[Rfam]
RNA sequence: UUUGAUGUGAAUUGAUUUGUCUUUGGAUACACUUAUUUAAAAGUGAUUCUUAUGAGUUGAUGUGUGUGUUUGGUAUAG
Numbered sequence: 001u002u003u004g005a006u007g008u009g010a011a012u013u014g015a016u017u018u019g020u021c022u023u024u025g026g027a028u029a030c031a032c033u034u035a036u037u038u039a040a041a042a043g044u045g046a047u048u049c050u051u052a053u054g055a056g057u058u059g060a061u062g063u064g065u066g067u068g069u070u071u072g073g074u075a076u077a078g
Base pairs, nucleotide, nucleotide: 011061012060013059014058015057016056017055018054022052025049026048027047028046030045031044032043033042034041
MIR5272 microRNA precursor family: a 78-nucleotide sequence from Medicago truncatula. The match comes from Rfam's covariance-model search (67 bits). NCBI's taxonomy places the organism under Eukaryota, Pentapetalae, fabids, Fabales, Medicago.